[Rfam]
RNA sequence: UCAUGUUACACUGGAGGCAGCGGUUCAUCGAUCUCUUCCUGAGCUUUGUUGUUUAACGUCACAAUCAUGAAUCGAUCGAUAAACCUCUGCAUCCAGUGUUCUCUGU
Numbered sequence: 001u002c003a004u005g006u007u008a009c010a011c012u013g014g015a016g017g018c019a020g021c022g023g024u025u026c027a028u029c030g031a032u033c034u035c036u037u038c039c040u041g042a043g044c045u046u047u048g049u050u051g052u053u054u055a056a057c058g059u060c061a062c063a064a065u066c067a068u069g070a071a072u073c074g075a076u077c078g079a080u081a082a083a084c085c086u087c088u089g090c091a092u093c094c095a096g097u098g099u100u101c102u103c104u105g106u
Stems, first nucleotide, its partner, number of pairs: 013094003018089003022085004027080007036071003
This 106-nucleotide sequence from Vigna angularis belongs to the Rfam family "MIR162_1 microRNA precursor family".
A reference for the family is Reinhart et al. (2002), "MicroRNAs in plants", Genes Dev.
The base pairs follow the family's consensus structure, which was predicted with RNAalifold.
The family is grouped with related families in Rfam's "MIR167 microRNA precursor clan".